[Rfam]
RNA sequence: CGACCGCCGUACCGCGAGCUCUCCAGCCGCUCCAAGGUCCUGACGCCACUUCCCCGGCGCCAGGGCGGAGUGGGCGGAUGGGGAGCUGGCGGUACGGCGCUCGUGCA
Numbered sequence: 001c002g003a004c005c006g007c008c009g010u011a012c013c014g015c016g017a018g019c020u021c022u023c024c025a026g027c028c029g030c031u032c033c034a035a036g037g038u039c040c041u042g043a044c045g046c047c048a049c050u051u052c053c054c055c056g057g058c059g060c061c062a063g064g065g066c067g068g069a070g071u072g073g074g075c076g077g078a079u080g081g082g083g084a085g086c087u088g089g090c091g092g093u094a095c096g097g098c099g100c101u102c103g104u105g106c107a
Stems, first nucleotide, its partner, number of pairs: 010094006018086002021083005027077006037066006044059003
The family of this 107-nucleotide sequence from Dactylosporangium siamense is "mraW RNA". Pairs were carried over by alignment from the consensus structure, which is taken from published work.